RNA sequence: AUGGCCCCUCUGGGGAAAUGAGGGCUGCGGGUGGGCAGGGUGGCUCCUGUCCCCUCGUGGCUCCAGACCCAGCUGGGGCCC
Numbered sequence: 001a002u003g004g005c006c007c008c009u010c011u012g013g014g015g016a017a018a019u020g021a022g023g024g025c026u027g028c029g030g031g032u033g034g035g036c037a038g039g040g041u042g043g044c045u046c047c048u049g050u051c052c053c054c055u056c057g058u059g060g061c062u063c064c065a066g067a068c069c070c071a072g073c074u075g076g077g078g079c080c081c
Base pairs, nucleotide, nucleotide: 003080004079005078006077007076008075014069015068019066022063023062024061025060026059027058028057029056030055031054033052034051035050036049037048038047039046040045